Rfam assigns this 153-nucleotide RNA sequence from Salipiger marinus to the family "Ruegeria cis2 sRNA".
By type it is a small RNA.
Gene Ontology term of the family: regulation of gene expression.
[Rfam]
RNA sequence: GGUCGAAUUGCGCGGGAAAUAAUUGACGAAGGCCGCCCCGCGCGCCUGAUCGAUGGUGUGGAACAGCGGAUUCCAGUCGAACACCGCCAGCAUCGCCGGGGUCAGCGAAUUGGCCACGAACAUCUUGCCCGACGCGAUCAUGUUGGCGCGCUG
Numbered sequence: 001g002g003u004c005g006a007a008u009u010g011c012g013c014g015g016g017a018a019a020u021a022a023u024u025g026a027c028g029a030a031g032g033c034c035g036c037c038c039c040g041c042g043c044g045c046c047u048g049a050u051c052g053a054u055g056g057u058g059u060g061g062a063a064c065a066g067c068g069g070a071u072u073c074c075a076g077u078c079g080a081a082c083a084c085c086g087c088c089a090g091c092a093u094c095g096c097c098g099g100g101g102u103c104a105g106c107g108a109a110u111u112g113g114c115c116a117c118g119a120a121c122a123u124c125u126u127g128c129c130c131g132a133c134g135c136g137a138u139c140a141u142g143u144u145g146g147c148g149c150g151c152u153g
Base pairs, nucleotide, nucleotide: 001034002033004032008030009029013025014024015023038056039055040054041052042051064153065152066151067150068149071081072080073079086147087146088145089144090143091142092141093140097134098133100130101129103127104126105125107123110119111118112117
Dot-bracket structure: ((.(...((...(((.......)))...)).)))...(((((........)).))).......(((((..(((.....)))....((((((((...((.((.(((.(..(((....)))...).))).))..)).....)))))))).)))))